[Rfam]
RNA sequence: GAUGCUUCAUGACGGGAGGGACUGAAAUGUCUCUGGAUGCCUGGUCUUUCCCCGAUGCUCUCACCGCUGC
Numbered sequence: 001g002a003u004g005c006u007u008c009a010u011g012a013c014g015g016g017a018g019g020g021a022c023u024g025a026a027a028u029g030u031c032u033c034u035g036g037a038u039g040c041c042u043g044g045u046c047u048u049u050c051c052c053c054g055a056u057g058c059u060c061u062c063a064c065c066g067c068u069g070c
Base pairs, nucleotide, nucleotide: 001070004067005066014052015051016050017049018048019047020046021045022044023043029038030037031036
Annotation: Selenocysteine insertion sequence 1: a 70-nucleotide RNA sequence from Heterocephalus glaber. On this family, see Walczak et al., RNA 1996: "A novel RNA structural motif in the selenocysteine insertion element of eukaryotic selenoprotein mRNAs". By type it is a cis-regulatory element. The base pairs follow the family's consensus structure, which is taken from published work. Taxonomically the source falls in Heterocephalus (Eukaryota, Gnathostomata, Sarcopterygii, Dipnotetrapodomorpha).